[Rfam]
RNA sequence: ACAAAAAUUGGCGUUCUCUUUCCGGUUCUUCCCGGAGUCGGGAAAAGCUGGGUUGAGGGGGCGAAAAACAAAAAAA
Numbered sequence: 001a002c003a004a005a006a007a008u009u010g011g012c013g014u015u016c017u018c019u020u021u022c023c024g025g026u027u028c029u030u031c032c033c034g035g036a037g038u039c040g041g042g043a044a045a046a047g048c049u050g051g052g053u054u055g056a057g058g059g060g061g062c063g064a065a066a067a068a069c070a071a072a073a074a075a076a
Base pairs, nucleotide, nucleotide: 014059015058016057017056018055021052022051023050024049025048029044030043031042032041033040034039
RNA: mir-320 microRNA precursor family